RNA sequence: GCUGGACGCGCGGGAGAGUGUCUUGGCAUCUUCCCGUCAAGGACGCCGAAGGAGCAACCGCCCCGGAAACUCUCAGGCGAAAUGGACCGCGCGAUCAGU
Numbered sequence: 001g002c003u004g005g006a007c008g009c010g011c012g013g014g015a016g017a018g019u020g021u022c023u024u025g026g027c028a029u030c031u032u033c034c035c036g037u038c039a040a041g042g043a044c045g046c047c048g049a050a051g052g053a054g055c056a057a058c059c060g061c062c063c064c065g066g067a068a069a070c071u072c073u074c075a076g077g078c079g080a081a082a083u084g085g086a087c088c089g090c091g092c093g094a095u096c097a098g099u
Stems, first nucleotide, its partner, number of pairs: 007093007021042006045078003048074002052072003058066002
The record is a 99-nucleotide RNA sequence from Aurantiacibacter rhizosphaerae, which matches "Glycine riboswitch aptamer" in Rfam. Rfam links the family to the GO term glycine biosynthetic process. Taxonomically the source falls in Aurantiacibacter (Bacteria, Pseudomonadati, Alphaproteobacteria, Erythrobacteraceae).